Source information
A member of the RNA family "L2-Alphaproteobacteria ribosomal protein leader", 62 nucleotides long. It is annotated as a cis-regulatory leader. The sequence is in the family's curated seed alignment. The literature on the family includes a 2020 paper in BMC Microbiol by Eckert and Weinberg, "Discovery of 20 novel ribosomal leader candidates in bacteria and archaea".

RNA sequence: GGGGAGCUUCGGCGCCCUUAACCUCGGGUCGCAAGACCUGGAUAGCAAGCGGAAGACAGUAA
Numbered sequence: 001g002g003g004g005a006g007c008u009u010c011g012g013c014g015c016c017c018u019u020a021a022c023c024u025c026g027g028g029u030c031g032c033a034a035g036a037c038c039u040g041g042a043u044a045g046c047a048a049g050c051g052g053a054a055g056a057c058a059g060u061a062a
Base pairs, nucleotide, nucleotide: 001018002017003016004015006013007012024041025040026039027038028037029036030035